[Rfam]
RNA: Ribosomal protein L19 leader
RNA sequence: ACGAUGUUCCGCUGCUCUGAUAUGAAAGGCCUGGCAUGAGCAUCUG
Number, nucleotide and partner (000 for none) at each position: 001a000002c000003g044004a043005u042006g041007u040008u039009c038010c000011g000012c000013u036014g035015c034016u033017c000018u000019g000020a000021u000022a000023u000024g000025a000026a000027a000028g000029g000030c000031c000032u000033g016034g015035c014036a013037u000038g009039a008040g007041c006042a005043u004044c003045u000046g000